[Rfam]
RNA sequence: UGGCGCCCAACAUGGGGCACGAAGUAAGAGGGACACCGUGAGGGACGUCGUCGAAGCCGGCCGCAUUGAAGGAAGAAAUCCAGAGAAGGAGUCACCGCAGGAACCUGCUGCGGCCUUGCUCUCUGGUAAGUGGAUGACGAUAUUAUGGGUCAGGAAAUUAGUCAGCAUGAGUUGUUUGUAGAAGAACUCAGCAAAGUAUUAAAGGCGCAAGGAGUAAAGGUGAAAGUAAACUGGUUAAUUAAAUAUUUUGAUUAUAUUAAGGACAUUUGUCCCU
Numbered sequence: 001u002g003g004c005g006c007c008c009a010a011c012a013u014g015g016g017g018c019a020c021g022a023a024g025u026a027a028g029a030g031g032g033a034c035a036c037c038g039u040g041a042g043g044g045a046c047g048u049c050g051u052c053g054a055a056g057c058c059g060g061c062c063g064c065a066u067u068g069a070a071g072g073a074a075g076a077a078a079u080c081c082a083g084a085g086a087a088g089g090a091g092u093c094a095c096c097g098c099a100g101g102a103a104c105c106u107g108c109u110g111c112g113g114c115c116u117u118g119c120u121c122u123c124u125g126g127u128a129a130g131u132g133g134a135u136g137a138c139g140a141u142a143u144u145a146u147g148g149g150u151c152a153g154g155a156a157a158u159u160a161g162u163c164a165g166c167a168u169g170a171g172u173u174g175u176u177u178g179u180a181g182a183a184g185a186a187c188u189c190a191g192c193a194a195a196g197u198a199u200u201a202a203a204g205g206c207g208c209a210a211g212g213a214g215u216a217a218a219g220g221u222g223a224a225a226g227u228a229a230a231c232u233g234g235u236u237a238a239u240u241a242a243a244u245a246u247u248u249u250g251a252u253u254a255u256a257u258u259a260a261g262g263a264c265a266u267u268u269g270u271c272c273c274u
Stems, first nucleotide, its partner, number of pairs: 006032003013026002037047003080126004088119001089117002096112005135152004158201001160199001161197002208250005214244002218236002221233002259274001261272004
This 274-nucleotide sequence from Saimiri boliviensis belongs to the Rfam family "Mason-Pfizer monkey virus packaging signal". The match comes from Rfam's covariance-model search (121 bits). By type it is a cis-regulatory element. Gene Ontology term of the family: viral genome packaging. Taxonomically the source falls in Saimiri boliviensis (Eukaryota, Chordata, Euteleostomi, Eutheria).